[Rfam]
RNA sequence: AGAAAACCAUAGAAGCCAUAGAAGGAGCGUUCACGUCGCAGCCCCUGUCAGGUAUCUGUUUACCUGCGAAUCCUUCU
Numbered sequence: 001a002g003a004a005a006a007c008c009a010u011a012g013a014a015g016c017c018a019u020a021g022a023a024g025g026a027g028c029g030u031u032c033a034c035g036u037c038g039c040a041g042c043c044c045c046u047g048u049c050a051g052g053u054a055u056c057u058g059u060u061u062a063c064c065u066g067c068g069a070a071u072c073c074u075u076c077u
Base pairs, nucleotide, nucleotide: 012044015042016041020077021076022075023074024073025072026071027039028038029037049066050065051064052063053062054061
RNA: Mammalian CPEB3 ribozyme